SAM riboswitch aptamer (S box leader): a 102-nucleotide RNA sequence from Thermosinus carboxydivorans.
Its Rfam clan is "SAM clan".
About the family: The SAM riboswitch is found upstream of a number of genes which code for proteins involved in methionine or cysteine biosynthesis in Gram-positive bacteria.
The organism belongs to Thermosinus carboxydivorans, within Bacteria.

RNA sequence: UACUCAUCAAGAGUUGGUGGAGGGACUGGCCCGAUGAAACCGCGGCAACCAUUUGGCAAGUCCAAAACGGUGCCAAUUCCGGCGUACGGCGCGAGAUGGGGA
Numbered sequence: 001u002a003c004u005c006a007u008c009a010a011g012a013g014u015u016g017g018u019g020g021a022g023g024g025a026c027u028g029g030c031c032c033g034a035u036g037a038a039a040c041c042g043c044g045g046c047a048a049c050c051a052u053u054u055g056g057c058a059a060g061u062c063c064a065a066a067a068c069g070g071u072g073c074c075a076a077u078u079c080c081g082g083c084g085u086a087c088g089g090c091g092c093g094a095g096a097u098g099g100g101g102a
Base pairs, nucleotide, nucleotide: 001102003100004099005098006097007096008095013043015042016041017040018039022032023031024030026082027081028080029079044074045073046072047071049070050069052066053065054064055063078094083091084090
The base pairs follow the family's consensus structure, which is taken from published work.